[Rfam]
RNA sequence: UCUUCCACCAUCAGUAACAAGGAUUCAUCCUGUUGUCAAGCACAGCCUCAACAGGGAAUCUCUGUUACUGGAGGUGGGGCU
Numbered sequence: 001u002c003u004u005c006c007a008c009c010a011u012c013a014g015u016a017a018c019a020a021g022g023a024u025u026c027a028u029c030c031u032g033u034u035g036u037c038a039a040g041c042a043c044a045g046c047c048u049c050a051a052c053a054g055g056g057a058a059u060c061u062c063u064g065u066u067a068c069u070g071g072a073g074g075u076g077g078g079g080c081u
Base pairs, nucleotide, nucleotide: 011071012070013069014068015067016066017065018064019063021061022060023059024058025057026056029055030054031053032052033051034050035049
Rfam assigns this 81-nucleotide RNA sequence from Clupea harengus to the family "mir-459 microRNA precursor family".
The organism belongs to Clupea, within Eukaryota.
It scores 71 bits against the family's covariance model.
The base pairs follow the family's consensus structure, which was predicted with RNAalifold.